[Rfam]
RNA sequence: CCAAUGGACAUCUAGGGUUCCGACCUGCCAGGCAGGUGACUGGACCGAGAGUUGUCGACCUCCAGCGGGGGUUACACGGCGGGAUAAAAGCCCGGGAGAC
Numbered sequence: 001c002c003a004a005u006g007g008a009c010a011u012c013u014a015g016g017g018u019u020c021c022g023a024c025c026u027g028c029c030a031g032g033c034a035g036g037u038g039a040c041u042g043g044a045c046c047g048a049g050a051g052u053u054g055u056c057g058a059c060c061u062c063c064a065g066c067g068g069g070g071g072u073u074a075c076a077c078g079g080c081g082g083g084a085u086a087a088a089a090g091c092c093c094g095g096g097a098g099a100c
Stems, first nucleotide, its partner, number of pairs: 007056004012051001015046002020043002022040001023037006057073007075095001077098001081093003
A member of the RNA family "Guanidine-I riboswitch aptamer" from Halopseudomonas salegens, 100 nucleotides long. The organism belongs to Halopseudomonas, within Bacteria. Rfam links the family to the GO term regulation of gene expression.